This 131-nucleotide RNA sequence from Castor canadensis belongs to the Rfam family "Small nucleolar RNA SNORA75". On this family, see Ganot et al., Genes Dev 1997: "The family of box ACA small nucleolar RNAs is defined by an evolutionarily conserved secondary structure and ubiquitous sequence elements essential for RNA accumulation". From the family's description: U23 belongs to the H/ACA class of snoRNAs. snoRNAs bind a number of proteins (including dyskerin, Gar1p and Nop10p in the case of the H/ACA class) to form snoRNP complexes. This class are thought to guide the sites of modification of uridines to pseudouridines by forming direct base pairing interactions with substrate RNAs.
RNA sequence: AUCUUCUCAUUGAACUCCUUUCUGUCAACUGGAGGCAGUUUAUGGAUAUGCACAAAAGGCUGUUCACAGAACUAACAUUACUUUACCUCUUGCUUUUACAGAAGUAUAUUUGGCUGUUUUGUGAGACAUUC
Numbered sequence: 001a002u003c004u005u006c007u008c009a010u011u012g013a014a015c016u017c018c019u020u021u022c023u024g025u026c027a028a029c030u031g032g033a034g035g036c037a038g039u040u041u042a043u044g045g046a047u048a049u050g051c052a053c054a055a056a057a058g059g060c061u062g063u064u065c066a067c068a069g070a071a072c073u074a075a076c077a078u079u080a081c082u083u084u085a086c087c088u089c090u091u092g093c094u095u096u097u098a099c100a101g102a103a104g105u106a107u108a109u110u111u112g113g114c115u116g117u118u119u120u121g122u123g124a125g126a127c128a129u130u131c
Stems, first nucleotide, its partner, number of pairs: 003059003007055001015050001016046003022038005064124006086104001088102002091100002